This 172-nucleotide sequence from Enterocloster lavalensis belongs to the Rfam family "c-di-AMP riboswitch aptamer (ydaO/yuaA leader)". Rfam's curators write: This family represents a conserved RNA structure found upstream of the ydaO and yuaA genes in Bacillus subtilis and related genes in other bacteria.

[Rfam]
RNA sequence: GAAAAAUAUACGCCGAAUGCCGCGCCCUGUAAACCAACAGAAGCGGCAGCGGGAGAACCAAUUAUUGGGGUGUAUUUGCCCGGAGAUACAGUGAGCGCCACGUAUCCCGGCAAUAGGGAACCUUCUUUCCCGAACCCGUCAGCUAAUCUCGUAGGCGAAGGAAGGUUAAAUG
Numbered sequence: 001g002a003a004a005a006a007u008a009u010a011c012g013c014c015g016a017a018u019g020c021c022g023c024g025c026c027c028u029g030u031a032a033a034c035c036a037a038c039a040g041a042a043g044c045g046g047c048a049g050c051g052g053g054a055g056a057a058c059c060a061a062u063u064a065u066u067g068g069g070g071u072g073u074a075u076u077u078g079c080c081c082g083g084a085g086a087u088a089c090a091g092u093g094a095g096c097g098c099c100a101c102g103u104a105u106c107c108c109g110g111c112a113a114u115a116g117g118g119a120a121c122c123u124u125c126u127u128u129c130c131c132g133a134a135c136c137c138g139u140c141a142g143c144u145a146a147u148c149u150c151g152u153a154g155g156c157g158a159a160g161g162a163a164g165g166u167u168a169a170a171u172g
Stems, first nucleotide, its partner, number of pairs: 011157004018048006049152006059067002068137003076113004116131004